[Rfam]
RNA: Group II catalytic intron D1-D4-2
Organism: Kutzneria sp. 744
RNA sequence: GGAGGUCGGCCCUCCGGGUUCGCCGUGCAGGCGGAGAACCCAAACCACCGCAGUGUCAUGCCGGUCAAGAGCCGGGGUGGGAAGCGACUGCGGACAAGGCCCGCAACCAGCGGGUCAGGU
Number, nucleotide and partner (000 for none) at each position: 001g015002g014003a013004g012005g011006u000007c000008g000009g000010c000011c005012c004013u003014c002015c001016g041017g040018g039019u038020u037021c036022g000023c034024c033025g032026u031027g000028c000029a000030g000031g026032c025033g024034g023035a000036g021037a020038a019039c018040c017041c016042a000043a000044a000045c000046c119047a000048c093049c092050g000051c090052a089053g088054u087055g000056u080057c000058a078059u077060g000061c000062c074063g073064g072065u071066c000067a000068a000069g000070a000071g065072c064073c063074g062075g000076g000077g059078u058079g000080g056081g000082a000083a000084g000085c000086g000087a054088c053089u052090g051091c000092g049093g048094a000095c000096a000097a000098g116099g115100c114101c113102c112103g111104c000105a000106a000107c000108c000109a000110g000111c103112g102113g101114g100115u099116c098117a000118g000119g046120u000